[Rfam]
Nucleotides: 051
Base pairs, nucleotide, nucleotide: 001051002050003049004048005047006046007045008044010027011026012025013024014023015022016021030043031042032041033040034039
Number, partner (000 for none) and nucleotide at each position: 001051c002050g003049g004048u005047u006046g007045a008044g009000a010027g011026g012025g013024c014023u015022g016021c017000a018000u019000g020000u021016g022015c023014g024013g025012u026011c027010c028000g029000c030043u031042g032041a033040a034039c035000g036000a037000a038000a039034g040033u041032u042031c043030a044008c045007u046006c047005g048004g049003c050002u051001g
Source information:
DUF3800-VI RNA: a 51-nucleotide RNA. The sequence is in the family's curated seed alignment. By type it is a cis-regulatory element. The family's consensus secondary structure is taken from published work.